[Rfam]
RNA sequence: UAAGCCCUGCAAGUUGCGAAGUCUCAAGUUCCACUUGGGAUACGAAUUUUAAAAAAUUUCAUAUCAACUGCAGGACUAU
Numbered sequence: 001u002a003a004g005c006c007c008u009g010c011a012a013g014u015u016g017c018g019a020a021g022u023c024u025c026a027a028g029u030u031c032c033a034c035u036u037g038g039g040a041u042a043c044g045a046a047u048u049u050u051a052a053a054a055a056a057u058u059u060c061a062u063a064u065c066a067a068c069u070g071c072a073g074g075a076c077u078a079u
Base pairs, nucleotide, nucleotide: 003077004076006074007073008072009071010070012069013068014067015066016065021041022040023039024038025037026036027035028034029033
This 79-nucleotide RNA sequence belongs to the Rfam family "DUF3800-VIII RNA". Pairs were carried over by alignment from the consensus structure, which is taken from published work. The family's RNA type in Rfam is small RNA. The sequence is in the family's curated seed alignment. About the family: Bacteroidetes, Cyanobacteria, Firmicutes, Planctomycetes (1 example), Proteobacteria, Tenericutes (1 example).